[Rfam]
RNA sequence: UAAUCUUAACGUAAAGAGGGAGCCUUGCGCUAACAAAGCUUCCCUUGUAGAAACCGUUAAAGACGGCAGCAGUUAAAUAAGUUAUAAAAAA
Number, nucleotide and partner (000 for none) at each position: 001u000002a000003a000004u000005c000006u000007u000008a000009a000010c000011g000012u000013a000014a000015a000016g000017a000018g000019g000020g000021a000022g000023c000024c000025u036026u035027g034028c000029g000030c000031u000032a000033a000034c027035a026036a025037a000038g000039c000040u000041u000042c000043c000044c000045u000046u000047g000048u000049a000050g000051a000052a000053a000054c066055c065056g064057u063058u062059a000060a000061a000062g058063a057064c056065g055066g054067c000068a000069g000070c000071a000072g000073u000074u000075a000076a000077a000078u000079a000080a000081g000082u000083u000084a000085u000086a000087a000088a000089a000090a000091a000